[Rfam]
Shown here is a 409-nucleotide sequence from Polyangium spumosum, a member of the family "Bacterial RNase P class A".
The source organism's lineage runs through Bacteria, Myxococcota, Polyangia, Polyangiales and Polyangium.
The base pairs follow the family's consensus structure, which is taken from published work.
By type it is a ribozyme.
Gene Ontology terms of the family: tRNA processing, dimeric ribonuclease P complex and ribonuclease P activity.

RNA sequence: GCAGCGGAGCAGGUGGUCGCCGGCGGGUCUUCCGCGGGAGGAAAGUCCGAGCUCCGCAGGGCAGGGUGCCGGGUAACGCCCGGUGAGAGUGAUCUCGAGGAGAGUGCAACAGAGAAGAGACCGCCGGCUCGAAGGUGCCCUCGUGGUGCUCGUCCAGUCGGUAAGGGUGAAACGGUGGAGUAAGAGCCCACCGCGCCCCCGGUAACGGGGGUGGCAUGGCAAACCCCACCCGGUGCAAGGCCGCAUAGGGAGGCGAUGGGACCGAGAGGUCCCGGGAGGAUGGCCCGUCCGAUGCCUCCGGGUUGGCUGCUCGAGGCACGCAGCAAUGCGUGCCCUAGAGGAAUGAUCGCCGCCGCUCCGGGGGUGACCCUGGAGCGACACAGAACUCGGCUUAUGAGCCGCUGCGACC
Numbered sequence: 001g002c003a004g005c006g007g008a009g010c011a012g013g014u015g016g017u018c019g020c021c022g023g024c025g026g027g028u029c030u031u032c033c034g035c036g037g038g039a040g041g042a043a044a045g046u047c048c049g050a051g052c053u054c055c056g057c058a059g060g061g062c063a064g065g066g067u068g069c070c071g072g073g074u075a076a077c078g079c080c081c082g083g084u085g086a087g088a089g090u091g092a093u094c095u096c097g098a099g100g101a102g103a104g105u106g107c108a109a110c111a112g113a114g115a116a117g118a119g120a121c122c123g124c125c126g127g128c129u130c131g132a133a134g135g136u137g138c139c140c141u142c143g144u145g146g147u148g149c150u151c152g153u154c155c156a157g158u159c160g161g162u163a164a165g166g167g168u169g170a171a172a173c174g175g176u177g178g179a180g181u182a183a184g185a186g187c188c189c190a191c192c193g194c195g196c197c198c199c200c201g202g203u204a205a206c207g208g209g210g211g212u213g214g215c216a217u218g219g220c221a222a223a224c225c226c227c228a229c230c231c232g233g234u235g236c237a238a239g240g241c242c243g244c245a246u247a248g249g250g251a252g253g254c255g256a257u258g259g260g261a262c263c264g265a266g267a268g269g270u271c272c273c274g275g276g277a278g279g280a281u282g283g284c285c286c287g288u289c290c291g292a293u294g295c296c297u298c299c300g301g302g303u304u305g306g307c308u309g310c311u312c313g314a315g316g317c318a319c320g321c322a323g324c325a326a327u328g329c330g331u332g333c334c335c336u337a338g339a340g341g342a343a344u345g346a347u348c349g350c351c352g353c354c355g356c357u358c359c360g361g362g363g364g365u366g367a368c369c370c371u372g373g374a375g376c377g378a379c380a381c382a383g384a385a386c387u388c389g390g391c392u393u394a395u396g397a398g399c400c401g402c403u404g405c406g407a408c409c
Base pairs, nucleotide, nucleotide: 001405002404003403004402005401006400007399010396011395012351013350014349015348016347017346018345020038021037023035024034025033026032027031043393044392045391047390048389049388050387051386052235054233055232059286060285061284062283064231065230066229067228068227069083070082071081072080073079084098085096086095087094088093099226100225104224105223106220107219121166122165123162124161125160126159127158128157129156131154174192175191176190177189178188193215194213195212196211197210198209199208200207201206239308240307241306242305249299250298251297252296253295254294278290279289280288281287315334316333317332318331319330320329321328322327